[Rfam]
RNA sequence: CGAUGAGGUAGAGGUCGCAGCAUGAAUCAGUACAACCGGAGCAGGCGUAGAGCCGCCGCGAAUCCCGGUUGAAAAGGUCCUGCUGCCGAAGUGCAGAUUCCGCUCUGGGAAUCCUGUGCUGGGGCUGUACCCGAAAGGGACAGAACUGUCACAAUGAAAAAAUCCAAGCAUUUCAUUGUGUUGAGCUAUCUUAAAG
Numbered sequence: 001c002g003a004u005g006a007g008g009u010a011g012a013g014g015u016c017g018c019a020g021c022a023u024g025a026a027u028c029a030g031u032a033c034a035a036c037c038g039g040a041g042c043a044g045g046c047g048u049a050g051a052g053c054c055g056c057c058g059c060g061a062a063u064c065c066c067g068g069u070u071g072a073a074a075a076g077g078u079c080c081u082g083c084u085g086c087c088g089a090a091g092u093g094c095a096g097a098u099u100c101c102g103c104u105c106u107g108g109g110a111a112u113c114c115u116g117u118g119c120u121g122g123g124g125c126u127g128u129a130c131c132c133g134a135a136a137g138g139g140a141c142a143g144a145a146c147u148g149u150c151a152c153a154a155u156g157a158a159a160a161a162a163u164c165c166a167a168g169c170a171u172u173u174c175a176u177u178g179u180g181u182u183g184a185g186c187u188a189u190c191u192u193a194a195a196g
Stems, first nucleotide, its partner, number of pairs: 006191006017086006024079002033071007090120007097112005121147002125143004130138002150180010
Description: Lysine riboswitch aptamer: a 196-nucleotide RNA sequence from Paenibacillus bovis. A search with the family's covariance model found it, with a score of 96 bits.